[Rfam]
RNA: Guanidine-I riboswitch aptamer
Organism: Cellvibrio sp. PSBB023
RNA sequence: UAAAUAGAGAGCUAGGGUUCCGAUCAUGCGAUCCACGAUCACAUGAUGUCUGGUCCGAGAGCUUUCGACCUCUGCCGCCGGAUGCAUCUGGCAGGAAAGGGGUUACACGGCGGGACAAAAGCCCGGGAGAU
Numbered sequence: 001u002a003a004a005u006a007g008a009g010a011g012c013u014a015g016g017g018u019u020c021c022g023a024u025c026a027u028g029c030g031a032u033c034c035a036c037g038a039u040c041a042c043a044u045g046a047u048g049u050c051u052g053g054u055c056c057g058a059g060a061g062c063u064u065u066c067g068a069c070c071u072c073u074g075c076c077g078c079c080g081g082a083u084g085c086a087u088c089u090g091g092c093a094g095g096a097a098a099g100g101g102g103u104u105a106c107a108c109g110g111c112g113g114g115a116c117a118a119a120a121g122c123c124c125g126g127g128a129g130a131u
Stems, first nucleotide, its partner, number of pairs: 007066006015056002020053002022050001023047006067104007106126001108129001112124003